[Rfam]
RNA sequence: AGCCCCUAGCUAUGGACAAAGAGAGACCUGUUGGUGGUGGUGUUCUCCUAUCAGUCAGGGGCAGAGUAGAUGGCAGUCCUCUGUUCAUCCUAGCCUGAUGCCUGACUUGGUGGCCAAAGCUGUCUUAUGCCUGGGACUCAUAA
Numbered sequence: 001a002g003c004c005c006c007u008a009g010c011u012a013u014g015g016a017c018a019a020a021g022a023g024a025g026a027c028c029u030g031u032u033g034g035u036g037g038u039g040g041u042g043u044u045c046u047c048c049u050a051u052c053a054g055u056c057a058g059g060g061g062c063a064g065a066g067u068a069g070a071u072g073g074c075a076g077u078c079c080u081c082u083g084u085u086c087a088u089c090c091u092a093g094c095c096u097g098a099u100g101c102c103u104g105a106c107u108u109g110g111u112g113g114c115c116a117a118a119g120c121u122g123u124c125u126u127a128u129g130c131c132u133g134g135g136a137c138u139c140a141u142a143a
Stems, first nucleotide, its partner, number of pairs: 002062006013053003020046002023041001026038003083137004097131001099129001103127003108122002111119001
Small nucleolar RNA SNORA48: a 143-nucleotide RNA from Mus musculus. Taxonomically the source falls in Mus (Eukaryota, Vertebrata, Amniota, Muroidea). Its family is annotated with RNA processing and nucleolus in the Gene Ontology. On this family, see Ofengand and Bakin, J Mol Biol 1997: "Mapping to nucleotide resolution of pseudouridine residues in large subunit ribosomal RNAs from representative eukaryotes, prokaryotes, archaebacteria, mitochondria and chloroplasts". The family is grouped with related families in Rfam's "SNORA48 clan". The base pairs follow the family's consensus structure, which was predicted with RNAalifold. From the family's description: The snoRNA ACA 48 has been identified to guide pseudouridylation of the residue U3797 in the 28S rRNA subunit.